[Rfam]
RNA sequence: CACCGAGUCCGAGGCUCCGGAAUGAUCCGGAGCCGGUGCAAAAGGAA
Numbered sequence: 001c002a003c004c005g006a007g008u009c010c011g012a013g014g015c016u017c018c019g020g021a022a023u024g025a026u027c028c029g030g031a032g033c034c035g036g037u038g039c040a041a042a043a044g045g046a047a
Stems, first nucleotide, its partner, number of pairs: 013034008
The family of this 47-nucleotide sequence from Streptomyces sp. LaPpAH-202 is "raiA-hairpin RNA". The base pairs follow the family's consensus structure, which is taken from published work. Rfam classes the family as a small RNA. Taxonomically the source falls in Streptomyces (Bacteria, Bacillati, Actinomycetota, Kitasatosporales).